[Rfam]
RNA: c-di-GMP-I riboswitch aptamer
RNA sequence: AUAAAUUUUUGGCAAACUUGCCGAAAGGCAGGGACGCAAAGCCACAGGUCUAAGGUUCGGGUGGACUAUGACAGCUGGGUUGCCGAA
Numbered sequence: 001a002u003a004a005a006u007u008u009u010u011g012g013c014a015a016a017c018u019u020g021c022c023g024a025a026a027g028g029c030a031g032g033g034a035c036g037c038a039a040a041g042c043c044a045c046a047g048g049u050c051u052a053a054g055g056u057u058c059g060g061g062u063g064g065a066c067u068a069u070g071a072c073a074g075c076u077g078g079g080u081u082g083c084c085g086a087a
Base pairs, nucleotide, nucleotide: 012037013036017032018031019030020029021028022027040081041080042079043078045077046076047075048072049071050070055066056065057064058063